RNA sequence: GUAUUACAUUGUUAGAUGAGGCUCCUAUACUGGAAAUAUGCUACAGCCGCGAAAUGUCGAGAGACACCAAGUUGGUUAAACAGAAACGAUCGUGAAGGUCGAUGUCAAUGUAGCUAGAAUUUUUCUUACGCCGUAUAGUGCUAAAGUUCAACGAUAGGCUAUGUG
Numbered sequence: 001g002u003a004u005u006a007c008a009u010u011g012u013u014a015g016a017u018g019a020g021g022c023u024c025c026u027a028u029a030c031u032g033g034a035a036a037u038a039u040g041c042u043a044c045a046g047c048c049g050c051g052a053a054a055u056g057u058c059g060a061g062a063g064a065c066a067c068c069a070a071g072u073u074g075g076u077u078a079a080a081c082a083g084a085a086a087c088g089a090u091c092g093u094g095a096a097g098g099u100c101g102a103u104g105u106c107a108a109u110g111u112a113g114c115u116a117g118a119a120u121u122u123u124u125c126u127u128a129c130g131c132c133g134u135a136u137a138g139u140g141c142u143a144a145a146g147u148u149c150a151a152c153g154a155u156a157g158g159c160u161a162u163g164u165g
Stems, first nucleotide, its partner, number of pairs: 005161002009157002011152002013096001015148003020142003025138006032132002040114005046076003049072002055066004083105001085103001089099003116126003
This 165-nucleotide RNA from Pseudolactococcus hodotermopsidis belongs to the Rfam family "M-box riboswitch aptamer (ykoK leader)". The match comes from Rfam's covariance-model search (114 bits). Rfam describes the family as follows. M-box riboswitch, also know as ykoK leader is described as a metaloregulatory RNA that sense divalent metals and function as a genetic control element of genes related to divalent metal transport in bacteria. It was first reported upstream of the B.subtilis ykoK gene and genes with related functions in other bacteria. NCBI's taxonomy places the organism under Bacteria, Bacillota, Bacilli, Lactobacillales, Pseudolactococcus.